[Rfam]
Description: The record is a 225-nucleotide RNA sequence from Medicago truncatula, which matches "MIR2630 microRNA precursor family" in Rfam. Rfam 15.1 lists 296 matches to the family in 4 species. The family's consensus secondary structure was predicted with RNAalifold. The source organism's lineage runs through Eukaryota, Streptophyta, Streptophytina, Trifolieae and Medicago.
RNA sequence: GCUUGCAAAUAUACCAUUUUUUGCUUUUGGUCCCUGGUGUUUUAUUUUAGUCCUUGAAAAGUUGGUUCAUGUUGAAAUUGGUCGCAAUAUUCAUUUUAGUUUUUAUUUUGAGGAAUUAAAACCAAAUAUUCUGCAUAUUACAGCAUCCGGUUCCAAUAUGAAUAAAUUUUGUAGGGACUAAAACAAAACAAGGACCAAAAGCAAAAAAUUAUACAUUUGCAAGGA
Numbered sequence: 001g002c003u004u005g006c007a008a009a010u011a012u013a014c015c016a017u018u019u020u021u022u023g024c025u026u027u028u029g030g031u032c033c034c035u036g037g038u039g040u041u042u043u044a045u046u047u048u049a050g051u052c053c054u055u056g057a058a059a060a061g062u063u064g065g066u067u068c069a070u071g072u073u074g075a076a077a078u079u080g081g082u083c084g085c086a087a088u089a090u091u092c093a094u095u096u097u098a099g100u101u102u103u104u105a106u107u108u109u110g111a112g113g114a115a116u117u118a119a120a121a122c123c124a125a126a127u128a129u130u131c132u133g134c135a136u137a138u139u140a141c142a143g144c145a146u147c148c149g150g151u152u153c154c155a156a157u158a159u160g161a162a163u164a165a166a167u168u169u170u171g172u173a174g175g176g177a178c179u180a181a182a183a184c185a186a187a188a189c190a191a192g193g194a195c196c197a198a199a200a201g202c203a204a205a206a207a208a209u210u211a212u213a214c215a216u217u218u219g220c221a222a223g224g225a
Base pairs, nucleotide, nucleotide: 006219007218008217009216010215012213013212016209017208019206020205021204023202024201025200026199027198028197029196030195031194032193033192035190039189040188041187042186043185045183046182047181048180049179051177052176054174055173056172058170059169060168061167062166066162067161069159070158071157072156073155074154078150079149080148081147084144086139087138088137089136090135106121107120108119109118